[Rfam]
RNA sequence: UAAGGCCAUAUUGUCCUGUCACAGCAGUACGGAUUCAUUAAAUGCUACUGCUAGGCUAGGACAGUACUGCCUUU
Numbered sequence: 001u002a003a004g005g006c007c008a009u010a011u012u013g014u015c016c017u018g019u020c021a022c023a024g025c026a027g028u029a030c031g032g033a034u035u036c037a038u039u040a041a042a043u044g045c046u047a048c049u050g051c052u053a054g055g056c057u058a059g060g061a062c063a064g065u066a067c068u069g070c071c072u073u074u
Base pairs, nucleotide, nucleotide: 003072004071005070006069012063013062014061015060016059017058018057023052024051025050026049027048028047029046
Source information
This 74-nucleotide sequence from Armadillidium nasatum belongs to the Rfam family "mir-1000 microRNA precursor family". The family has 13 seed sequences and 152 matches in Rfam 15.1. The source organism's lineage runs through Eukaryota, Opisthokonta, Panarthropoda, Mandibulata and Armadillidium.